RNA sequence: UGAUGAAAAUGAUGAAAGAAAUGGACGGGUGAUGAUCUACUUUAUUCAUAUGAUCAAAUAAACCUCUUCGCUACGUUCUUUCUGAUUCAAAU
Numbered sequence: 001u002g003a004u005g006a007a008a009a010u011g012a013u014g015a016a017a018g019a020a021a022u023g024g025a026c027g028g029g030u031g032a033u034g035a036u037c038u039a040c041u042u043u044a045u046u047c048a049u050a051u052g053a054u055c056a057a058a059u060a061a062a063c064c065u066c067u068u069c070g071c072u073a074c075g076u077u078c079u080u081u082c083u084g085a086u087u088c089a090a091a092u
Stems, first nucleotide, its partner, number of pairs: 004089004
The family of this 92-nucleotide sequence from Gossypium schwendimanii is "Small nucleolar RNA R32/R81/Z41". By type it is a C/D-box small nucleolar RNA. The match comes from Rfam's covariance-model search (69 bits).